[Rfam]
Shown here is a 79-nucleotide RNA from Ruminococcaceae bacterium D16, a member of the family "ZMP/ZTP riboswitch aptamer (pfl RNA motif)". The match comes from Rfam's covariance-model search (55 bits).
RNA sequence: GGCGGAUCAUAUGACUGACGGAAGUGGGGAGACCACAGGGAGUAUGAUCGUCAUGAUGCCGACCGUCUGGGCGCCGAAA
Numbered sequence: 001g002g003c004g005g006a007u008c009a010u011a012u013g014a015c016u017g018a019c020g021g022a023a024g025u026g027g028g029g030a031g032a033c034c035a036c037a038g039g040g041a042g043u044a045u046g047a048u049c050g051u052c053a054u055g056a057u058g059c060c061g062a063c064c065g066u067c068u069g070g071g072c073g074c075c076g077a078a079a
Base pairs, nucleotide, nucleotide: 005049006048007047008046009045010044011043012042015039016038017067018066019065020064021063024036025035026034027033057073058072059071060070

The source organism's lineage runs through Bacteria, Bacillati, Clostridia, Eubacteriales and Oscillospiraceae.
The family's consensus secondary structure is taken from published work.